[Rfam]
RNA sequence: GAAAGAGUCCACUAGGGUUCCGCAGCACUGCUGGUCUGGACCGAGAGUGGACCCAUGGAGCAAUCCGUGACACGGAGGGAUAAAAGCCUGGGAGAU
Numbered sequence: 001g002a003a004a005g006a007g008u009c010c011a012c013u014a015g016g017g018u019u020c021c022g023c024a025g026c027a028c029u030g031c032u033g034g035u036c037u038g039g040a041c042c043g044a045g046a047g048u049g050g051a052c053c054c055a056u057g058g059a060g061c062a063a064u065c066c067g068u069g070a071c072a073c074g075g076a077g078g079g080a081u082a083a084a085a086g087c088c089u090g091g092g093a094g095a096u
Stems, first nucleotide, its partner, number of pairs: 007052006015042002020039002022036001023033004053069001058065001071091001073094001077089003
The family of this 96-nucleotide RNA sequence from Lacicoccus alkaliphilus is "Guanidine-I riboswitch aptamer". From the family's description: This family represents a conserved RNA structure found upstream of the ykkC and yxkD genes in Bacillus subtilis and related genes in other bacteria. The function of this family is unclear although it has been suggested that it may function to switch on efflux pumps and detoxification systems in response to harmful environmental molecules.